[Rfam]
RNA sequence: UCGAGAACAAGAUAUGAUUUUAGUAGUCUCUUUGUCUACAAUGUCAGAUAAGGUAUAGCAAAUCAACAGCUGAGACGUCAUUUCAUCGCCAUUUCUCUCAAUUGAUGAUUUGAUUGUUGCUCGGCCACAU
Numbered sequence: 001u002c003g004a005g006a007a008c009a010a011g012a013u014a015u016g017a018u019u020u021u022a023g024u025a026g027u028c029u030c031u032u033u034g035u036c037u038a039c040a041a042u043g044u045c046a047g048a049u050a051a052g053g054u055a056u057a058g059c060a061a062a063u064c065a066a067c068a069g070c071u072g073a074g075a076c077g078u079c080a081u082u083u084c085a086u087c088g089c090c091a092u093u094u095c096u097c098u099c100a101a102u103u104g105a106u107g108a109u110u111u112g113a114u115u116g117u118u119g120c121u122c123g124g125c126c127a128c129a130u
Base pairs, nucleotide, nucleotide: 005037007035008034009033011030012029014027015026069125071123072122073121074120077114078113079112080111085109086108087107088106090104091103093101094100